[Rfam]
Nucleotides: 111
Stems, first nucleotide, its partner, number of pairs: 012037002017032006040105004045101003048096006
Number, partner (000 for none) and nucleotide at each position: 001000a002000u003000c004000a005000c006000g007000a008000a009000a010000a011000g012037g013036u014000a015000a016000a017032c018031c019030c020029u021028g022027a023000g024000u025000g026000a027022u028021c029020a030019g031018g032017g033000g034000g035000c036013g037012c038000a039000a040105a041104g042103u043102a044000a045101a046100g047099g048096a049095u050094c051093u052092u053091c054000a055000a056000u057000u058000g059000c060000g061000u062000u063000c064000u065000g066000a067000g068000u069000u070000u071000u072000g073000a074000u075000u076000u077000u078000a079000g080000a081000a082000a083000c084000g085000a086000u087000u088000u089000g090000a091053g092052a093051a094050g095049a096048u097000g098000g099047c100046c101045u102043u103042a104041c105040u106000g107000c108000c109000g110000a111000a
Shown here is a 111-nucleotide sequence from Candidatus Brocadia fulgida, a member of the family "c-di-GMP-I riboswitch aptamer".
Lineage of the source: Bacteria > Planctomycetota > Candidatus Brocadiia > Candidatus Brocadiales > Candidatus Brocadia.